This 91-nucleotide sequence from Denticeps clupeoides belongs to the Rfam family "let-7 microRNA precursor family". The family is grouped with related families in Rfam's "let-7 microRNA precursor clan". Rfam 15.1 lists 8,694 matches to the family in 797 species. This family represents the microRNAs (miRNA) let-7 and mir-98. let-7 was identified from a study of developmental timing in C. elegans, and was later shown to be part of a much larger class of non-coding RNAs termed miRNAs. Pairs were carried over by alignment from the consensus structure, which was predicted with RNAalifold. On this family, see Rougvie, Nat Rev Genet 2001: "Control of developmental timing in animals". Rfam links the family to the GO terms RISC complex and miRNA-mediated post-transcriptional gene silencing.
Nucleotides: 091
Stems, first nucleotide, its partner, number of pairs: 001091005008085008017076008026067002029053004055062001
Number, partner (000 for none) and nucleotide at each position: 001091c002090u003089g004088u005087g006000c007000u008085g009084a010083g011082g012081u013080a014079g015078u016000a017076a018075g019074u020073u021072g022071u023070g024069u025000u026067g027066u028000u029053g030052g031051g032050g033000a034000c035000a036000u037000g038000a039000u040000a041000u042000g043000a044000u045000u046000u047000c048000a049000c050032c051031c052030c053029c054000u055062u056000a057000u058000u059000g060000g061000a062055g063000a064000u065000a066027a067026c068000u069024a070023u071022g072021c073020a074019a075018c076017u077000c078015a079014c080013u081012g082011c083010c084009u085008u086000c087005c088004a089003c090002a091001g